[Rfam]
RNA sequence: GGUGUUUGGAAUGAAGUUUGAGCCAAGAUCAUCAAAUCAUUGUUUCUUCUUCUCUUUCAUUAAAUUAUUCUUGAUUAAUUUAUUUUCAUAAAUACUAUCAUCUAUAACUUCAUGGAUUAGGGAUGGAAUAUGAGAGUGAUCUCGGACCAGGCUUCAUUCCUCACACC
Numbered sequence: 001g002g003u004g005u006u007u008g009g010a011a012u013g014a015a016g017u018u019u020g021a022g023c024c025a026a027g028a029u030c031a032u033c034a035a036a037u038c039a040u041u042g043u044u045u046c047u048u049c050u051u052c053u054c055u056u057u058c059a060u061u062a063a064a065u066u067a068u069u070c071u072u073g074a075u076u077a078a079u080u081u082a083u084u085u086u087c088a089u090a091a092a093u094a095c096u097a098u099c100a101u102c103u104a105u106a107a108c109u110u111c112a113u114g115g116a117u118u119a120g121g122g123a124u125g126g127a128a129u130a131u132g133a134g135a136g137u138g139a140u141c142u143c144g145g146a147c148c149a150g151g152c153u154u155c156a157u158u159c160c161u162c163a164c165a166c167c
Stems, first nucleotide, its partner, number of pairs: 001167005008160006016152005024144001026142007
A member of the RNA family "mir-166 microRNA precursor family" from Trifolium subterraneum, 167 nucleotides long. Gene Ontology terms of the family: miRNA-mediated post-transcriptional gene silencing and RISC complex. A search with the family's covariance model found it, with a score of 63 bits. The family has 31 seed sequences and 2,599 matches in Rfam 15.1. This family represents the plant microRNA (miRNA) precursor mir-166. A reference for the family is Reinhart et al. (2002), "MicroRNAs in plants", Genes Dev.